About this RNA:
The family of this 102-nucleotide sequence from Paenibacillus abyssi is "Purine riboswitch aptamer". Rfam describes the family as follows. Riboswitches are metabolite binding domains within certain messenger RNAs that serve as precision sensors for their corresponding targets. Allosteric rearrangement of mRNA structure is mediated by ligand binding, and this results in modulation of gene expression.
[Rfam]
RNA sequence: UGUCGAUUUAUGUAGAAGCCUCGUAUAUUCUCGGGAAUAAGGCCCGAAAGUCUCUACCCGGAAACCAUAAAUUUUCGGACUACGAGCUUGGAAAAUAAGAAC
Numbered sequence: 001u002g003u004c005g006a007u008u009u010a011u012g013u014a015g016a017a018g019c020c021u022c023g024u025a026u027a028u029u030c031u032c033g034g035g036a037a038u039a040a041g042g043c044c045c046g047a048a049a050g051u052c053u054c055u056a057c058c059c060g061g062a063a064a065c066c067a068u069a070a071a072u073u074u075u076c077g078g079a080c081u082a083c084g085a086g087c088u089u090g091g092a093a094a095a096u097a098a099g100a101a102c
Base pairs, nucleotide, nucleotide: 018088020086021085022084023083024082025081029049031047032046033045034044035043058078059077060076061075062074063073064072